Description: The family of this 102-nucleotide RNA from Macrococcoides bohemicum is "SAM riboswitch aptamer (S box leader)". The source organism's lineage runs through Bacteria, Bacillati, Bacillota, Staphylococcaceae and Macrococcoides. The base pairs follow the family's consensus structure, which is taken from published work.

RNA sequence: AUCUUAUUCAGAGUAGGUGGAGGGACUUGGCCCUAUGAAACCUCAGCAACAGGCUUAUGCACUGUGCUAAUUCCAACAAGAUGAUGUCUUGAAAGAUAAGAA
Numbered sequence: 001a002u003c004u005u006a007u008u009c010a011g012a013g014u015a016g017g018u019g020g021a022g023g024g025a026c027u028u029g030g031c032c033c034u035a036u037g038a039a040a041c042c043u044c045a046g047c048a049a050c051a052g053g054c055u056u057a058u059g060c061a062c063u064g065u066g067c068u069a070a071u072u073c074c075a076a077c078a079a080g081a082u083g084a085u086g087u088c089u090u091g092a093a094a095g096a097u098a099a100g101a102a
Stems, first nucleotide, its partner, number of pairs: 002101007013044001015043004022033003027076004045068004050064002052060001054059001072094001077091006